[Rfam]
RNA sequence: AAUGCUGUGAUGAGGUAAAACACCAUAUGGUGUAUUAAGGGCAGUGGAAUUAGAGGGUUAUUUUAUAGCUUUCUCCGUGAGCCUAUUUUAUUAAACGACUUCUCCUUCCACUGAGCAUU
Numbered sequence: 001a002a003u004g005c006u007g008u009g010a011u012g013a014g015g016u017a018a019a020a021c022a023c024c025a026u027a028u029g030g031u032g033u034a035u036u037a038a039g040g041g042c043a044g045u046g047g048a049a050u051u052a053g054a055g056g057g058u059u060a061u062u063u064u065a066u067a068g069c070u071u072u073c074u075c076c077g078u079g080a081g082c083c084u085a086u087u088u089u090a091u092u093a094a095a096c097g098a099c100u101u102c103u104c105c106u107u108c109c110a111c112u113g114a115g116c117a118u119u
Stems, first nucleotide, its partner, number of pairs: 001119005
Dot-bracket structure: (((((.............................................................................................................)))))
Background:
The family of this 119-nucleotide sequence from Solanum commersonii is "Small nucleolar RNA Z152/R70/R12/". For this family Rfam cites "Identification of 66 box C/D snoRNAs in Arabidopsis thaliana: extensive gene duplications generated multiple isoforms predicting new ribosomal RNA 2'-O-methylation sites" (Barneche et al., J Mol Biol, 2001). By type it is a C/D-box small nucleolar RNA. The base pairs follow the family's consensus structure, which was predicted with PFOLD.